[Rfam]
RNA sequence: GGUCCGAUGCCACGUCGACGGUAGUGAAUCAUAAAAAUGGCAAUGACCGGCGAUGCUAUGAUUGGACCAAUAUUAAGUUUUUCGUAUGCUGAUAGGAAUCUGUGGAUCUGAUUAUUUCCAUUCAUCCACGGAGCCGAUUACUGCGAUUACAUUU
Numbered sequence: 001g002g003u004c005c006g007a008u009g010c011c012a013c014g015u016c017g018a019c020g021g022u023a024g025u026g027a028a029u030c031a032u033a034a035a036a037a038u039g040g041c042a043a044u045g046a047c048c049g050g051c052g053a054u055g056c057u058a059u060g061a062u063u064g065g066a067c068c069a070a071u072a073u074u075a076a077g078u079u080u081u082u083c084g085u086a087u088g089c090u091g092a093u094a095g096g097a098a099u100c101u102g103u104g105g106a107u108c109u110g111a112u113u114a115u116u117u118c119c120a121u122u123c124a125u126c127c128a129c130g131g132a133g134c135c136g137a138u139u140a141c142u143g144c145g146a147u148u149a150c151a152u153u154u
Base pairs, nucleotide, nucleotide: 002067003066004065005064006063007062008061009059013055014054015053016052017051020048021047022046024041025040082146083145084144085143086142095135096134100131101130102129104127105126106125107124
Rfam assigns this 154-nucleotide RNA from Protea cynaroides to the family "Small nucleolar RNA snoR2/U65".
The family has 11 seed sequences and 908 matches in Rfam 15.1.
The family's RNA type in Rfam is H/ACA-box small nucleolar RNA.
The family is grouped with related families in Rfam's "SNORA65 clan".
The source organism's lineage runs through Eukaryota, Streptophyta, Embryophyta, Proteaceae and Protea.
A reference for the family is Shaw et al. (1998), "Localization and processing from a polycistronic precursor of novel snoRNAs in maize", J Cell Sci.